RNA sequence: ACACACCAGCGUCCAAAUCUUGCCUCUGGCAUUUCCCUGUACGUUAGCGAUGAUCCGCAAGGUAGCAAUGUGUGUGUCACCAGCCCGCGCCGGGUCCUCUGAUCAAGGGGCGCGGAUGGU
Numbered sequence: 001a002c003a004c005a006c007c008a009g010c011g012u013c014c015a016a017a018u019c020u021u022g023c024c025u026c027u028g029g030c031a032u033u034u035c036c037c038u039g040u041a042c043g044u045u046a047g048c049g050a051u052g053a054u055c056c057g058c059a060a061g062g063u064a065g066c067a068a069u070g071u072g073u074g075u076g077u078c079a080c081c082a083g084c085c086c087g088c089g090c091c092g093g094g095u096c097c098u099c100u101g102a103u104c105a106a107g108g109g110g111c112g113c114g115g116a117u118g119g120u
Stems, first nucleotide, its partner, number of pairs: 001077006007070002009044004014039002021031004047066002055062002080119003085115007098107001100105001
Dot-bracket structure: ((((((((((((.((.....((((...))))......)).))))..((......((....))..))..)).))))))..(((..(((((((......(.(....).).))))))).))).

This 120-nucleotide RNA sequence belongs to the Rfam family "Flavobacterium-1 RNA". The base pairs follow the family's consensus structure, which is taken from published work.